[Rfam]
Nucleotides: 028
Stems, first nucleotide, its partner, number of pairs: 001028004008023001010020004
Number, partner (000 for none) and nucleotide at each position: 001028c002027a003026a004025c005000c006000u007000c008023u009000g010020g011019c012018g013017a014000a015000g016000u017013u018012c019011g020010c021000g022000a023008a024000u025004g026003u027002u028001g